[Rfam]
RNA sequence: GUGACGGGCCAGGUGUCCCGUCCGCCGGUGAGGACGUGUUCACCGAGGUAGUCCCCGUCGGCGAGCACGUCCCGCGAGGUUUCUUCCCCGUAGGGGCCGGGGAUGCGGGUGUUGACCUUGCCGUGGGCCAGCAGCACCAGCUCCUCGGAGGGCGCGCCCACGGUGGUGAUGUUCUCGCCCGGGGCGUAGUGGUGCUGGGUGAACCGUUCGGCCAGCGCCGCGAGCACCGUCUCGUCGUCGAGCUCCCACAGACACGGGAUCUCGCGCAACUCCGGGGGCAGCACGCGAACCCGGUCGCCGGUGUUGGAGAACGUCAGGCGUCCGUCGCCGAGCUGGUAGGUCAACCGUCGGUUGACCCGGUAGGAGCCGCUGGUGGUCUCGACCCACGGCAGCAUGCGCAGCAGCCACCGUGGACUGAUCGAGCGCAUCUGCGGUGGGGUUUUCGUGGUGGUGGCCAGGUUGCGGGCCGCGGCCGUGUCCAGGCUGAGCCGGUCCCGGCCG
Numbered sequence: 001g002u003g004a005c006g007g008g009c010c011a012g013g014u015g016u017c018c019c020g021u022c023c024g025c026c027g028g029u030g031a032g033g034a035c036g037u038g039u040u041c042a043c044c045g046a047g048g049u050a051g052u053c054c055c056c057g058u059c060g061g062c063g064a065g066c067a068c069g070u071c072c073c074g075c076g077a078g079g080u081u082u083c084u085u086c087c088c089c090g091u092a093g094g095g096g097c098c099g100g101g102g103a104u105g106c107g108g109g110u111g112u113u114g115a116c117c118u119u120g121c122c123g124u125g126g127g128c129c130a131g132c133a134g135c136a137c138c139a140g141c142u143c144c145u146c147g148g149a150g151g152g153c154g155c156g157c158c159c160a161c162g163g164u165g166g167u168g169a170u171g172u173u174c175u176c177g178c179c180c181g182g183g184g185c186g187u188a189g190u191g192g193u194g195c196u197g198g199g200u201g202a203a204c205c206g207u208u209c210g211g212c213c214a215g216c217g218c219c220g221c222g223a224g225c226a227c228c229g230u231c232u233c234g235u236c237g238u239c240g241a242g243c244u245c246c247c248a249c250a251g252a253c254a255c256g257g258g259a260u261c262u263c264g265c266g267c268a269a270c271u272c273c274g275g276g277g278g279c280a281g282c283a284c285g286c287g288a289a290c291c292c293g294g295u296c297g298c299c300g301g302u303g304u305u306g307g308a309g310a311a312c313g314u315c316a317g318g319c320g321u322c323c324g325u326c327g328c329c330g331a332g333c334u335g336g337u338a339g340g341u342c343a344a345c346c347g348u349c350g351g352u353u354g355a356c357c358c359g360g361u362a363g364g365a366g367c368c369g370c371u372g373g374u375g376g377u378c379u380c381g382a383c384c385c386a387c388g389g390c391a392g393c394a395u396g397c398g399c400a401g402c403a404g405c406c407a408c409c410g411u412g413g414a415c416u417g418a419u420c421g422a423g424c425g426c427a428u429c430u431g432c433g434g435u436g437g438g439g440u441u442u443u444c445g446u447g448g449u450g451g452u453g454g455c456c457a458g459g460u461u462g463c464g465g466g467c468c469g470c471g472g473c474c475g476u477g478u479c480c481a482g483g484c485u486g487a488g489c490c491g492g493u494c495c496c497g498g499c500c501g
Stems, first nucleotide, its partner, number of pairs: 001383002005381004009376003012322002015319002019313002023309001029307001031305002034302002041297001042295004048227002052223002055220001057218002059105002062102001069097001071096003076091001078089002111216004116211002120207002123204002126200001128198004133193001135191001140190002146186002150180004154172002159168003230288002234284002238280001243277004250271002255264002323336001345373003349369003356364002385425001387423001391419001393417002397412003401409001431470004438463001441459003445455002471500002474497002479492002482489001
RNA: Saccharopolyspora sRNA 350
Organism: Actinopolyspora mortivallis